[Rfam]
Shown here is a 182-nucleotide sequence from Drosophila persimilis, a member of the family "R2 RNA element". The family's consensus secondary structure is taken from published work. Rfam's curators write: This family represents the 3' UTR region of the R2 retrotransposable element. This family is known to interact with the R2-encoded reverse transcriptase in a reaction known as target primed reverse transcription (TPRT). Its family is annotated with regulation of reverse transcription in the Gene Ontology. The family's RNA type in Rfam is cis-regulatory element.

RNA sequence: CUGUUGCAUUUUCCAUAGGUUUAUUUGCUACCUUUACUUAUUUUCAUUUGUAGUAUUUUUUGCUUAUUUUUAAAUGCAUAAAAUGGUGGUGUUUAGUCCGUAGGCGUAAUUGAAUUACGAAUCGGGCAUAUCUUUAGCGCCGGCGCUAAAGAUAUCUUUGGAAGAUUUACCGGCCAGAGUCC
Numbered sequence: 001c002u003g004u005u006g007c008a009u010u011u012u013c014c015a016u017a018g019g020u021u022u023a024u025u026u027g028c029u030a031c032c033u034u035u036a037c038u039u040a041u042u043u044u045c046a047u048u049u050g051u052a053g054u055a056u057u058u059u060u061u062g063c064u065u066a067u068u069u070u071u072a073a074a075u076g077c078a079u080a081a082a083a084u085g086g087u088g089g090u091g092u093u094u095a096g097u098c099c100g101u102a103g104g105c106g107u108a109a110u111u112g113a114a115u116u117a118c119g120a121a122u123c124g125g126g127c128a129u130a131u132c133u134u135u136a137g138c139g140c141c142g143g144c145g146c147u148a149a150a151g152a153u154a155u156c157u158u159u160g161g162a163a164g165a166u167u168u169a170c171c172g173g174c175c176a177g178a179g180u181c182c
Base pairs, nucleotide, nucleotide: 029055030054031053034050062180063179064178065177084176085175086174088171089170090169096127097126098125099124100123105119106118107117108116109115110114129154130153131152132151133150134149
It scores 56 bits against the family's covariance model.